[Rfam]
RNA sequence: GGAAACGAAGGAAUGGAACACCGACGCAAGCUUGCUUGCAGGAAGACUUCUGACCUUUAUCCCCGCCAAAACAUGAGUAAGUAGCCAUUUUAUGAAGAAAAAUGAGCGGAUUACGAAUGUUUUGAGGAUUGUGAGAGCACGAAAGUGCGGAACAAUCCGGUAUCA
Numbered sequence: 001g002g003a004a005a006c007g008a009a010g011g012a013a014u015g016g017a018a019c020a021c022c023g024a025c026g027c028a029a030g031c032u033u034g035c036u037u038g039c040a041g042g043a044a045g046a047c048u049u050c051u052g053a054c055c056u057u058u059a060u061c062c063c064c065g066c067c068a069a070a071a072c073a074u075g076a077g078u079a080a081g082u083a084g085c086c087a088u089u090u091u092a093u094g095a096a097g098a099a100a101a102a103u104g105a106g107c108g109g110a111u112u113a114c115g116a117a118u119g120u121u122u123u124g125a126g127g128a129u130u131g132u133g134a135g136a137g138c139a140c141g142a143a144a145g146u147g148c149g150g151a152a153c154a155a156u157c158c159g160g161u162a163u164c165a
Stems, first nucleotide, its partner, number of pairs: 001062003010056002014052005021045001025041001026039005067124008077114004084107002086104005126158007137148004
Dot-bracket structure: (((......((..(((((..(...((((((....))))).)...)..)))))..))...)))....((((((((..((((...(((((((.........))))).))...))))..)))))))).(((((((....((((....))))...))))))).......

Rfam assigns this 165-nucleotide RNA sequence from Allocoprococcus comes to the family "Clostridiales-1 RNA". The organism belongs to Allocoprococcus comes, within Bacteria. The family's consensus secondary structure is taken from published work.